[Rfam]
A member of the RNA family "DUF805b RNA", 35 nucleotides long. The family's RNA type in Rfam is cis-regulatory element. Clan: DUF805 clan. Pairs were carried over by alignment from the consensus structure, which is taken from published work.

Nucleotides: 035
Stems, first nucleotide, its partner, number of pairs: 002021004010034003
Number, partner (000 for none) and nucleotide at each position: 001000u002021a003020c004019g005018g006000g007000g008000a009000u010034g011033c012032c013000g014000a015000a016000a017000a018005c019004c020003g021002u022000u023000g024000a025000c026000a027000g028000a029000g030000u031000a032012g033011g034010c035000u